[Rfam]
RNA sequence: GGUCCUAUAGUGUAGUGGUUAUCACUUUCGGUUUUGAUCCGGACAACCCCGGUUCGAAUCCGGGUAGGACCU
Numbered sequence: 001g002g003u004c005c006u007a008u009a010g011u012g013u014a015g016u017g018g019u020u021a022u023c024a025c026u027u028u029c030g031g032u033u034u035u036g037a038u039c040c041g042g043a044c045a046a047c048c049c050c051g052g053u054u055c056g057a058a059u060c061c062g063g064g065u066a067g068g069a070c071c072u
Base pairs, nucleotide, nucleotide: 001071002070003069004068005067006066007065010025011024012023027043028042029041030040031039048064049063050062051061052060

The record is a 72-nucleotide sequence from Saccharomyces cerevisiae, which matches "tRNA" in Rfam. Rfam classes the family as a transfer RNA. The source organism's lineage runs through Eukaryota, Opisthokonta, Ascomycota, Saccharomycotina and Saccharomyces.